[Rfam]
Nucleotides: 532
Stems, first nucleotide, its partner, number of pairs: 008530002010527003014524007022514002026478005031357001033355003037351004041346002047062004071341005077335001082125004095114002098111003129329002132327004138323001139321001140317003143313003150189006156165003169180003195305004200275003204272001207269001210266002213263001278298001280296006361430004366425001375417001393412002397408004437468001442463005484506001486504006
Number, partner (000 for none) and nucleotide at each position: 001000a002000a003000g004000g005000a006000a007000u008530u009529g010527a011526c012525g013000g014524a015523a016522g017521g018520g019519c020518a021000c022514a023513c024000a025000a026478a027477g028476a029475g030474u031357g032000g033355a034354a035353c036000c037351u038350g039349c040348g041346g042345c043000u044000u045000a046000a047062u048061u049060u050059g051000a052000c053000u054000c055000a056000a057000c058000a059050c060049g061048g062047g063000a064000a065000a066000a067000c068000u069000c070000a071341c072340c073339a074338g075337g076000u077335c078000c079000g080000g081000a082125u083124a084123c085122a086000c087000g088000u089000a090000u091000g092000a093000a094000a095114g096113u097000c098111a099110a100109g101000c102000u103000g104000a105000a106000a107000g108000a109100c110099u111098u112000u113096a114095c115000u116000c117000a118000a119000u120000g121000a122085u123084g124083u125082a126000a127000g128000u129329g130328g131000u132327g133326g134325u135324g136000c137000a138323u139321g140317g141316u142315c143313g144312u145311u146000c147000u148000u149000a150189g151188u152187u153186c154185g155184u156165g157164g158163a159000u160000u161000g162000a163158u164157u165156u166000g167000u168000c169180u170179g171178g172000u173000u174000u175000a176000u177000u178171c179170c180169g181000a182000u183000a184155a185154c186153g187152a188151g189150c190000g191000a192000g193000a194000c195305c196304c197303c198302g199000g200275c201274g202273u203000u204272c205000c206000u207269a208000a209000u210266a211265g212000g213263g214000g215000u216000g217000g218000c219000a220000g221000c222000c223000a224000g225000a226000c227000c228000g229000g230000u231000c232000g233000c234000a235000a236000g237000a238000c239000a240000g241000g242000u243000u244000a245000g246000c247000u248000c249000g250000c251000c252000a253000c254000c255000u256000g257000a258000a259000g260000u261000u262000a263213u264000g265211c266210u267000u268000c269207u270000u271000a272204g273202a274201c275200g276000u277000a278298u279000c280296a281295g282294a283293g284292c285291c286000g287000a288000u289000a290000a291285g292284g293283u294282u295281c296280u297000u298278g299000a300000a301000a302198u303197g304196g305195g306000u307000u308000a309000a310000u311145a312144a313143c314000a315142g316141g317140u318000c319000a320000g321139u322000c323138a324135u325134g326133c327132c328130c329129u330000u331000a332000g333000a334000u335077g336000u337075u338074c339073u340072g341071g342000g343000c344000c345042g346041c347000a348040c349039g350038c351037g352000c353035g354034u355033u356000a357031c358000a359000a360000u361430g362429g363428c364427a365000u366425g367000u368000a369000a370000a371000a372000c373000g374000a375417g376000u377000g378000c379000u380000u381000g382000a383000a384000c385000a386000a387000g388000g389000c390000g391000u392000c393412c394411c395000a396000c397408g398407g399406c400405c401000g402000a403000a404000a405400g406399g407398u408397c409000g410000u411394g412393g413000u414000a415000a416000c417375c418000c419000u420000u421000a422000g423000u424000c425366c426000c427364u428363g429362c430361u431000u432000u433000g434000a435000c436000u437468g438000g439000g440000a441000c442463a443462g444461a445460u446459c447000u448000u449000u450000g451000c452000a453000a454000u455000u456000a457000u458000u459446g460445g461444u462443c463442u464000c465000a466000a467000a468437c469000g470000a471000g472000g473000a474030a475029u476028u477027u478026u479000u480000a481000g482000u483000a484506a485000u486504c487503g488502c489501a490500g491499g492000u493000c494000a495000u496000u497000a498000a499491c500490c501489u502488g503487c504486g505000u506484u507000g508000a509000a510000u511000g512000c513023g514022u515000c516000c517000c518020u519019g520018c521017c522016c523015u524014u525012u526011g527010u528000a529009c530008a531000c532000a

Rfam assigns this 532-nucleotide part of an RNA from Badhamia polycephala to the family "Eukaryotic small subunit ribosomal RNA". NCBI's taxonomy places the organism under Eukaryota, Evosea, Eumycetozoa, Physariida, Badhamia. Pairs were carried over by alignment from the consensus structure, which is taken from published work. Its family is annotated with ribosome and structural constituent of ribosome in the Gene Ontology.